[Rfam]
Record summary: The record is a 99-nucleotide sequence from Clostridium botulinum, which matches "Purine riboswitch aptamer" in Rfam. The base pairs follow the family's consensus structure, which is taken from published work.
RNA sequence: AAAAGAAUAUAACCACGUACUCAUAUAAGCCUAGAAAUAAGGUCGGGCGUUUCUACCAAAUACCGUAAAUAUUUGACUAUGAGUGGUCUAGUGUAAAUA
Numbered sequence: 001a002a003a004a005g006a007a008u009a010u011a012a013c014c015a016c017g018u019a020c021u022c023a024u025a026u027a028a029g030c031c032u033a034g035a036a037a038u039a040a041g042g043u044c045g046g047g048c049g050u051u052u053c054u055a056c057c058a059a060a061u062a063c064c065g066u067a068a069a070u071a072u073u074u075g076a077c078u079a080u081g082a083g084u085g086g087u088c089u090a091g092u093g094u095a096a097a098u099a
Stems, first nucleotide, its partner, number of pairs: 018085008029048004034044002057075006